[Rfam]
RNA sequence: UUCUUAUCCAGAGUGGCGGAGGGACUGGCCCGAUGAAGCCCGGCAACCUCGCUAUGAUCAUUAGCGGUUGGUGCCAAUUCCUGCAGAACGCAGAAUCGUUCUGAGAGAUGAGAA
Numbered sequence: 001u002u003c004u005u006a007u008c009c010a011g012a013g014u015g016g017c018g019g020a021g022g023g024a025c026u027g028g029c030c031c032g033a034u035g036a037a038g039c040c041c042g043g044c045a046a047c048c049u050c051g052c053u054a055u056g057a058u059c060a061u062u063a064g065c066g067g068u069u070g071g072u073g074c075c076a077a078u079u080c081c082u083g084c085a086g087a088a089c090g091c092a093g094a095a096u097c098g099u100u101c102u103g104a105g106a107g108a109u110g111a112g113a114a
Stems, first nucleotide, its partner, number of pairs: 001114008013041001015040003021031003025083001027081002042075004047071002049067006079106001084103006
This 114-nucleotide RNA from Thermoactinomyces daqus belongs to the Rfam family "SAM riboswitch aptamer (S box leader)". Taxonomically the source falls in Thermoactinomyces (Bacteria, Bacillota, Bacilli, Thermoactinomycetaceae).